[Rfam]
RNA sequence: UCCGGAAAUGGUAAACCCAUCGAAAGGUGGGGACACAAAGUCACGGGCCUGUAGCCGGUUAUUUUUAACCGGUAUGGCAGCCGGACUGCCGAAG
Numbered sequence: 001u002c003c004g005g006a007a008a009u010g011g012u013a014a015a016c017c018c019a020u021c022g023a024a025a026g027g028u029g030g031g032g033a034c035a036c037a038a039a040g041u042c043a044c045g046g047g048c049c050u051g052u053a054g055c056c057g058g059u060u061a062u063u064u065u066u067a068a069c070c071g072g073u074a075u076g077g078c079a080g081c082c083g084g085a086c087u088g089c090c091g092a093a094g
Stems, first nucleotide, its partner, number of pairs: 001094001003091002011036002016031006034080001039087004044083003047078003

A member of the RNA family "c-di-GMP-I-GGC riboswitch aptamer" from Halothermothrix orenii, 94 nucleotides long. For this family Rfam cites "Bioinformatic analysis of riboswitch structures uncovers variant classes with altered ligand specificity" (Weinberg et al., Proc Natl Acad Sci U S A, 2017). Rfam links the family to the GO term cyclic-di-GMP binding. The base pairs follow the family's consensus structure, which is taken from published work. It scores 72 bits against the family's covariance model.